[Rfam]
The record is a 176-nucleotide RNA, which matches "Group II catalytic intron D1-D4-4" in Rfam. Rfam's curators write: Group II introns are found in rRNA, tRNA and mRNA of organelles in fungi, plants and protists, and also in mRNA in bacteria. Gene Ontology term of the family: Group II intron splicing.
RNA sequence: UUGCAGGUGUAAAUCCUGUCAUGGUAAAAUCAGAGAGCCAUGUAGCAUAUGCCCAACUGCAAUAGUGAUGUUGUAUGUUGAAGCGGUAUGUAAAGCAUUACAUUGGAUGAAGUCCGUCAUAACUUGGCGUCCAGUAAGCAAUGUUAGUGUGUGCAAUCUACUAGUCUGUAACAUAA
Numbered sequence: 001u002u003g004c005a006g007g008u009g010u011a012a013a014u015c016c017u018g019u020c021a022u023g024g025u026a027a028a029a030u031c032a033g034a035g036a037g038c039c040a041u042g043u044a045g046c047a048u049a050u051g052c053c054c055a056a057c058u059g060c061a062a063u064a065g066u067g068a069u070g071u072u073g074u075a076u077g078u079u080g081a082a083g084c085g086g087u088a089u090g091u092a093a094a095g096c097a098u099u100a101c102a103u104u105g106g107a108u109g110a111a112g113u114c115c116g117u118c119a120u121a122a123c124u125u126g127g128c129g130u131c132c133a134g135u136a137a138g139c140a141a142u143g144u145u146a147g148u149g150u151g152u153g154c155a156a157u158c159u160a161c162u163a164g165u166c167u168g169u170a171a172c173a174u175a176a
Base pairs, nucleotide, nucleotide: 020042021041022040023039024038049089050088051087052086053085054080055079056078057077063070064069095150096149097148098147099146100145153169154168155167